[Rfam]
A member of the RNA family "T-box leader" from Bacillus manliponensis, 249 nucleotides long. For this family Rfam cites "Interaction between the acceptor end of tRNA and the T box stimulates antitermination in the Bacillus subtilis tyrS gene: a new role for the discriminator base" (Grundy et al., J Bacteriol, 1994). A search with the family's covariance model found it, with a score of 101 bits. NCBI's taxonomy places the organism under Bacteria, Bacillati, Bacillota, Bacilli, Bacillus.
Nucleotides: 249
Stems, first nucleotide, its partner, number of pairs: 007105002015100004028086005038076003049073006108141007143154003172210003177205002215246004226242004
Number, partner (000 for none) and nucleotide at each position: 001000a002000u003000a004000a005000a006000a007105g008104u009000a010000a011000u012000g013000a014000u015100g016099a017098g018097g019000a020000c021000a022000u023000g024000a025000g026000u027000u028086a029085u030084u031083u032082u033000u034000u035000a036000c037000g038076a039075u040074u041000c042000c043000c044000a045000g046000a047000g048000a049073g050072g051071g052070a053069g054068g055000c056000c057000u058000u059000g060000g061000c062000u063000g064000u065000g066000a067000g068054c069053u070052u071051c072050c073049u074040a075039a076038u077000a078000c079000g080000a081000g082032a083031a084030a085029g086028u087000a088000u089000a090000c091000u092000u093000a094000c095000c096000a097018c098017c099016u100015c101000u102000g103000a104008a105007c106000u107000u108141c109140a110139a111138g112137a113136g114135u115000g116000a117000a118000c119000a120000g121000c122000a123000u124000g125000a126000u127000g128000c129000a130000c131000a132000g133000u134000a135114a136113u137112u138111c139110u140109u141108g142000g143154c144153g145152g146000a147000u148000a149000a150000a151000a152145c153144c154143g155000u156000u157000a158000u159000c160000a161000a162000u163000u164000u165000a166000c167000a168000c169000g170000a171000g172210c173209u174208a175000u176000a177205a178204a179000a180000u181000g182000g183000g184000u185000g186000u187000a188000u189000u190000u191000g192000u193000u194000a195000u196000g197000c198000u199000u200000c201000a202000u203000u204178u205177u206000a207000u208174u209173a210172g211000a212000a213000u214000a215246a216245g217244g218243g219000u220000g221000g222000a223000a224000c225000c226242a227241c228240g229239a230000u231000u232000u233000c234000a235000a236000c237000a238000c239229u240228c241227g242226u243218c244217c245216c246215u247000u248000u249000g